[Rfam]
RNA sequence: UUCCCCACAGUUCUCCGGCCCUCGUUUCUCGCAAGAGAUGUCUAUUGCAGGCUGCUUGUCUUUUUUGGUUACCCUCCCAUAUGUCGCUCUCGAGCCUGUAACAGGACCUCGUGAUUGCCGCAGCUGGAUCAUGGUGGGUAGUGCGUUCUGUAUAGGACGUACCAGGCGGACAGGUAAACGAGGCUCGGAACUUAACCCUAAGAAGAUAU
Numbered sequence: 001u002u003c004c005c006c007a008c009a010g011u012u013c014u015c016c017g018g019c020c021c022u023c024g025u026u027u028c029u030c031g032c033a034a035g036a037g038a039u040g041u042c043u044a045u046u047g048c049a050g051g052c053u054g055c056u057u058g059u060c061u062u063u064u065u066u067g068g069u070u071a072c073c074c075u076c077c078c079a080u081a082u083g084u085c086g087c088u089c090u091c092g093a094g095c096c097u098g099u100a101a102c103a104g105g106a107c108c109u110c111g112u113g114a115u116u117g118c119c120g121c122a123g124c125u126g127g128a129u130c131a132u133g134g135u136g137g138g139u140a141g142u143g144c145g146u147u148c149u150g151u152a153u154a155g156g157a158c159g160u161a162c163c164a165g166g167c168g169g170a171c172a173g174g175u176a177a178a179c180g181a182g183g184c185u186c187g188g189a190a191c192u193u194a195a196c197c198c199u200a201a202g203a204a205g206a207u208a209u
Stems, first nucleotide, its partner, number of pairs: 009192003015188004
Shown here is a 209-nucleotide part of an RNA from Fusarium flagelliforme, a member of the family "Ascomycota telomerase RNA". The family's RNA type in Rfam is non-coding RNA gene. Its family is annotated with telomere maintenance via telomerase, telomerase catalytic core complex and telomerase activity in the Gene Ontology. For this family Rfam cites "The common ancestral core of vertebrate and fungal telomerase RNAs" (Qi et al., Nucleic Acids Res, 2013). It scores 328 bits against the family's covariance model.